The family of this 77-nucleotide RNA sequence from Luteipulveratus mongoliensis is "ZMP/ZTP riboswitch aptamer (pfl RNA motif)".
Gene Ontology terms of the family: regulation of purine nucleotide biosynthetic process and one-carbon metabolic process.
The family's consensus secondary structure is taken from published work.
The literature on the family includes a 2015 paper in Nat Struct Mol Biol by Jones and Ferre-D'Amare, "Recognition of the bacterial alarmone ZMP through long-distance association of two RNA subdomains".
Rfam 15.1 lists 3,295 matches to the family in 2,545 species.
RNA sequence: AGCGCCGAACACGACUGGCGCAGGUGGGCCACCACCGGGGAGUGAAGUCGAGCGCAUCGAACGCCUGGGUGCGACUC
Numbered sequence: 001a002g003c004g005c006c007g008a009a010c011a012c013g014a015c016u017g018g019c020g021c022a023g024g025u026g027g028g029c030c031a032c033c034a035c036c037g038g039g040g041a042g043u044g045a046a047g048u049c050g051a052g053c054g055c056a057u058c059g060a061a062c063g064c065c066u067g068g069g070u071g072c073g074a075c076u077c
Base pairs, nucleotide, nucleotide: 003050004049006047010044011043012042015039016038017065018064019063020062024035025034026033027032054072055071056070057069058068